[Rfam]
Nucleotides: 089
Stems, first nucleotide, its partner, number of pairs: 005085001007083002011079010022069002024066007032058004
Number, partner (000 for none) and nucleotide at each position: 001000g002000u003000g004000u005085c006000c007083c008082c009000u010000g011079g012078a013077g014076u015075u016074c017073c018072c019071c020070u021000g022069a023068g024066c025065a026064c027063u028062u029061c030060a031000c032058u033057g034056g035055g036000g037000a038000u039000c040000c041000u042000u043000g044000g045000u046000u047000u048000u049000c050000c051000g052000a053000u054000u055035c056034c057033u058032a059000c060030u061029g062028a063027a064026g065025u066024g067000u068023u069022u070020g071019g072018g073017g074016g075015a076014a077013c078012u079011c080000c081000c082008g083007g084000u085005g086000u087000c088000a089000u